[Rfam]
RNA: Pseudomonas sRNA CrcZ
Organism: Pseudomonas fluvialis
RNA sequence: ACAACAACAAGAAGAACCGCACACCCAUAACAAGAACAACACGCAACGACUCCAGCACAACAAGAACAACAAGGCGGAGGCGCAGCUAACUGAUUCUUUUGGAGAGGGUUGGUCGGCCAGGGAAUCCCGGCAGCAGUCCGAGAACAAUAAAACUGCCUCAAGGCAGCGCCCGAACUGCAAAGAGCCUUGGCUCCGAGAUCCACCAGCGACCAAAGCAAUCCGUUUGCUCUUACCCCUCGAUCUGAGGGCUGUCCCAGGUCACAAGCCAGUGGGACCGGGUCAAACAACAAGAAAAGCAAGCCCACGACAAUAAUAACAAUAGAGCACGCAGUGAUUUGAGGGGGAGCCUAGGCUCCCCCUUGUGCUUCCUGGACUACCCACUUCGUUCACCCU
Numbered sequence: 001a002c003a004a005c006a007a008c009a010a011g012a013a014g015a016a017c018c019g020c021a022c023a024c025c026c027a028u029a030a031c032a033a034g035a036a037c038a039a040c041a042c043g044c045a046a047c048g049a050c051u052c053c054a055g056c057a058c059a060a061c062a063a064g065a066a067c068a069a070c071a072a073g074g075c076g077g078a079g080g081c082g083c084a085g086c087u088a089a090c091u092g093a094u095u096c097u098u099u100u101g102g103a104g105a106g107g108g109u110u111g112g113u114c115g116g117c118c119a120g121g122g123a124a125u126c127c128c129g130g131c132a133g134c135a136g137u138c139c140g141a142g143a144a145c146a147a148u149a150a151a152a153c154u155g156c157c158u159c160a161a162g163g164c165a166g167c168g169c170c171c172g173a174a175c176u177g178c179a180a181a182g183a184g185c186c187u188u189g190g191c192u193c194c195g196a197g198a199u200c201c202a203c204c205a206g207c208g209a210c211c212a213a214a215g216c217a218a219u220c221c222g223u224u225u226g227c228u229c230u231u232a233c234c235c236c237u238c239g240a241u242c243u244g245a246g247g248g249c250u251g252u253c254c255c256a257g258g259u260c261a262c263a264a265g266c267c268a269g270u271g272g273g274a275c276c277g278g279g280u281c282a283a284a285c286a287a288c289a290a291g292a293a294a295a296g297c298a299a300g301c302c303c304a305c306g307a308c309a310a311u312a313a314u315a316a317c318a319a320u321a322g323a324g325c326a327c328g329c330a331g332u333g334a335u336u337u338g339a340g341g342g343g344g345a346g347c348c349u350a351g352g353c354u355c356c357c358c359c360u361u362g363u364g365c366u367u368c369c370u371g372g373a374c375u376a377c378c379c380a381c382u383u384c385g386u387u388c389a390c391c392c393u
Stems, first nucleotide, its partner, number of pairs: 047082002050079004097215005112207002133178004153166005234248004272375002275372003278303002281300001322365001324363002339360009